Background: The family of this 367-nucleotide RNA sequence from Macrococcoides bohemicum is "Bacterial RNase P class B". Ribonuclease P (RNase P) is a ubiquitous endoribonuclease, found in archaea, bacteria and eukarya as well as chloroplasts and mitochondria. Its best characterised activity is the generation of mature 5'-ends of tRNAs by cleaving the 5'-leader elements of precursor-tRNAs. Cellular RNase Ps are ribonucleoproteins. The literature on the family includes a 1998 paper in Annu Rev Biochem by Frank and Pace, "Ribonuclease P: unity and diversity in a tRNA processing ribozyme". Taxonomically the source falls in Macrococcoides (Bacteria, Bacillota, Caryophanales, Staphylococcaceae). It is annotated as a ribozyme.

RNA sequence: UAUCUCGGAUAAUCGCUAUACAUUGUAUAGAGGAAAGUCCAUGCUCACACAUGCCUGAGAUGGCUGUAGUGAUCGUGCCUGGUGAAACAAUAAGCCAGGGCAUUAAUUUGACGGCAGUGAAUAGACCUAAGUCUCUGAUAUGGUCUGAGUAACUUGAAAGUGCCACAGUGACGUAGCUUUUCUAGAAAUAGAAAAGGUGGAACGCGGUAAACCCCUCGAGUGAGCAAUCCAAAUUUGGUAGGAGCACUUUUCUAGCGGAAAUGAACGUAUAGAAGAGGUAUGAAAAUACAGACAGAUGAUUAUCACCGGCGUACGAGAGUAUCUAGGCUCAUUUGCAGUACUAAGGAACAGAACAUGGCUUACAGAG
Numbered sequence: 001u002a003u004c005u006c007g008g009a010u011a012a013u014c015g016c017u018a019u020a021c022a023u024u025g026u027a028u029a030g031a032g033g034a035a036a037g038u039c040c041a042u043g044c045u046c047a048c049a050c051a052u053g054c055c056u057g058a059g060a061u062g063g064c065u066g067u068a069g070u071g072a073u074c075g076u077g078c079c080u081g082g083u084g085a086a087a088c089a090a091u092a093a094g095c096c097a098g099g100g101c102a103u104u105a106a107u108u109u110g111a112c113g114g115c116a117g118u119g120a121a122u123a124g125a126c127c128u129a130a131g132u133c134u135c136u137g138a139u140a141u142g143g144u145c146u147g148a149g150u151a152a153c154u155u156g157a158a159a160g161u162g163c164c165a166c167a168g169u170g171a172c173g174u175a176g177c178u179u180u181u182c183u184a185g186a187a188a189u190a191g192a193a194a195a196g197g198u199g200g201a202a203c204g205c206g207g208u209a210a211a212c213c214c215c216u217c218g219a220g221u222g223a224g225c226a227a228u229c230c231a232a233a234u235u236u237g238g239u240a241g242g243a244g245c246a247c248u249u250u251u252c253u254a255g256c257g258g259a260a261a262u263g264a265a266c267g268u269a270u271a272g273a274a275g276a277g278g279u280a281u282g283a284a285a286a287u288a289c290a291g292a293c294a295g296a297u298g299a300u301u302a303u304c305a306c307c308g309g310c311g312u313a314c315g316a317g318a319g320u321a322u323c324u325a326g327g328c329u330c331a332u333u334u335g336c337a338g339u340a341c342u343a344a345g346g347a348a349c350a351g352a353a354c355a356u357g358g359c360u361u362a363c364a365g366a367g
Base pairs, nucleotide, nucleotide: 004367005366006365007363008304009303010302011301012300013299014298016030017029018028019027020026021025035361036360037359039358040357041356042355043354044224045223046222047221048220049067050066051065053064054063055062073219074218075217077215078099079098080097081096082095083094100112101110102109113214114213116154117153118152124145125144126143127142131139132138133137160212161211162208163207164206177196178195179194180193181192182191183190184189228243229242230241247277248276249275250274251273252272253271278289279288280287281286306346307345311341312340313339314338